[Rfam]
RNA sequence: GGUAGUAGCAAAUAUUCAAGUGAGAUCCUUGAAGACUGAAGUGGAGAAGGGUUCCACGUGAACAGCAGUUGAAUGUGGGUCAGUCGAUCCUAAGGCACCGGCUAAAGCCGUCUAGACACUUCGGGGAGAUGAAAUACUUAACGGUAUUUUGUCUACCUGGUUGCCGAAAGGGAAGUGGGUUAAUAUUCCCACACCAGGCAUGGGAGAUGGUAAUCCGCAAGGAUUACUUUGCGCGGUGACGCAAACGAACUCGCAGACCUCGUGUGGAGUCCGGGCCAGAGUUCUCUUUUCUGGUUUAGAGAUCAUGUCCCUGGAAGUGGCUCAGCCUGAGAUAGGGAUGCUGGUCUCGUAAAGCGCAGCGGUUCCUGUUGUGUCUCGUGUGCUCCACAUGAGCCGUGAAAAUGCGAGGGAGGCAAUUUAAAAUCUCCUGCCUGAUCGUACCCAUAUCCGCAGCAGGUCUCCAAGGUGAACAGCCUCUAGUCGA
Numbered sequence: 001g002g003u004a005g006u007a008g009c010a011a012a013u014a015u016u017c018a019a020g021u022g023a024g025a026u027c028c029u030u031g032a033a034g035a036c037u038g039a040a041g042u043g044g045a046g047a048a049g050g051g052u053u054c055c056a057c058g059u060g061a062a063c064a065g066c067a068g069u070u071g072a073a074u075g076u077g078g079g080u081c082a083g084u085c086g087a088u089c090c091u092a093a094g095g096c097a098c099c100g101g102c103u104a105a106a107g108c109c110g111u112c113u114a115g116a117c118a119c120u121u122c123g124g125g126g127a128g129a130u131g132a133a134a135u136a137c138u139u140a141a142c143g144g145u146a147u148u149u150u151g152u153c154u155a156c157c158u159g160g161u162u163g164c165c166g167a168a169a170g171g172g173a174a175g176u177g178g179g180u181u182a183a184u185a186u187u188c189c190c191a192c193a194c195c196a197g198g199c200a201u202g203g204g205a206g207a208u209g210g211u212a213a214u215c216c217g218c219a220a221g222g223a224u225u226a227c228u229u230u231g232c233g234c235g236g237u238g239a240c241g242c243a244a245a246c247g248a249a250c251u252c253g254c255a256g257a258c259c260u261c262g263u264g265u266g267g268a269g270u271c272c273g274g275g276c277c278a279g280a281g282u283u284c285u286c287u288u289u290u291c292u293g294g295u296u297u298a299g300a301g302a303u304c305a306u307g308u309c310c311c312u313g314g315a316a317g318u319g320g321c322u323c324a325g326c327c328u329g330a331g332a333u334a335g336g337g338a339u340g341c342u343g344g345u346c347u348c349g350u351a352a353a354g355c356g357c358a359g360c361g362g363u364u365c366c367u368g369u370u371g372u373g374u375c376u377c378g379u380g381u382g383c384u385c386c387a388c389a390u391g392a393g394c395c396g397u398g399a400a401a402a403u404g405c406g407a408g409g410g411a412g413g414c415a416a417u418u419u420a421a422a423a424u425c426u427c428c429u430g431c432c433u434g435a436u437c438g439u440a441c442c443c444a445u446a447u448c449c450g451c452a453g454c455a456g457g458u459c460u461c462c463a464a465g466g467u468g469a470a471c472a473g474c475c476u477c478u479a480g481u482c483g484a
Base pairs, nucleotide, nucleotide: 015033016032017031018030019029020028034482035481036480037479043462044461045460046459049442050441054078055077056076057075058074059073063071064070085438086437087436089171090170094165095164097111098110100109101108102107114158115157175192176191177190178189179188195434196433197432198431220429221428222427223426225423233242234241235240250408251407252406253405254404255403259393260392261391262390264388265387266386267385268384269383270382272378273377274376275295276294277293278292279291280290299348300347301346302345303344308338309337310336311335312334313333319327320326355373356372357371358370359369360368361367448457449456464476465475466474467473

Eukaryotic large subunit ribosomal RNA: a 484-nucleotide part of an RNA from Meloidogyne incognita. It is one of the family's seed sequences. The source organism's lineage runs through Eukaryota, Metazoa, Eumetazoa, Rhabditida and Meloidogyne.